A member of the RNA family "mir-160 microRNA precursor family" from Actinidia chinensis, 86 nucleotides long. It scores 68 bits against the family's covariance model. The organism belongs to Actinidia chinensis, within Eukaryota.

RNA sequence: AUAUGCCUGGCUCCCUGUAUGCCAUUUGCAAAAUCUUCCUGUAAAUAGGUGGCCUUUGCGGAUGGCAUGCGAGGAGUCAUGCAUGG
Numbered sequence: 001a002u003a004u005g006c007c008u009g010g011c012u013c014c015c016u017g018u019a020u021g022c023c024a025u026u027u028g029c030a031a032a033a034u035c036u037u038c039c040u041g042u043a044a045a046u047a048g049g050u051g052g053c054c055u056u057u058g059c060g061g062a063u064g065g066c067a068u069g070c071g072a073g074g075a076g077u078c079a080u081g082c083a084u085g086g
Stems, first nucleotide, its partner, number of pairs: 002085005008079007016071009027060003